[Rfam]
RNA sequence: AUAAUAACGAUAAGGGGCGACCUUUACGGUCGCCCCAUUUUGUUCUCAGCUUAACACUUUUGGUUUGGCCGCCGACUCGUUAAGCGUGAGUGCAGAUCUGGCGUUACGCAUAGCUGGCUGUUAGCUAGAUUCCUUACUAAUUUCCACUACUAACAGUUUUUGUAACCAAAACCCGAGCUUAGCUUGGUUUUUUUUAU
Numbered sequence: 001a002u003a004a005u006a007a008c009g010a011u012a013a014g015g016g017g018c019g020a021c022c023u024u025u026a027c028g029g030u031c032g033c034c035c036c037a038u039u040u041u042g043u044u045c046u047c048a049g050c051u052u053a054a055c056a057c058u059u060u061u062g063g064u065u066u067g068g069c070c071g072c073c074g075a076c077u078c079g080u081u082a083a084g085c086g087u088g089a090g091u092g093c094a095g096a097u098c099u100g101g102c103g104u105u106a107c108g109c110a111u112a113g114c115u116g117g118c119u120g121u122u123a124g125c126u127a128g129a130u131u132c133c134u135u136a137c138u139a140a141u142u143u144c145c146a147c148u149a150c151u152a153a154c155a156g157u158u159u160u161u162g163u164a165a166c167c168a169a170a171a172c173c174c175g176a177g178c179u180u181a182g183c184u185u186g187g188u189u190u191u192u193u194u195u196a197u
Stems, first nucleotide, its partner, number of pairs: 015035008041095001043089001049085007060075005103166006116158009170190002173187006
The record is a 197-nucleotide RNA sequence from Vibrio paucivorans, which matches "MicX Vibrio cholerae sRNA" in Rfam. NCBI's taxonomy places the organism under Bacteria, Pseudomonadati, Pseudomonadota, Vibrionaceae, Vibrio. The base pairs follow the family's consensus structure, which was predicted with CMfinder. For this family Rfam cites "RNase E-dependent processing stabilizes MicX, a Vibrio cholerae sRNA" (Davis and Waldor, Mol Microbiol, 2007). It scores 153 bits against the family's covariance model.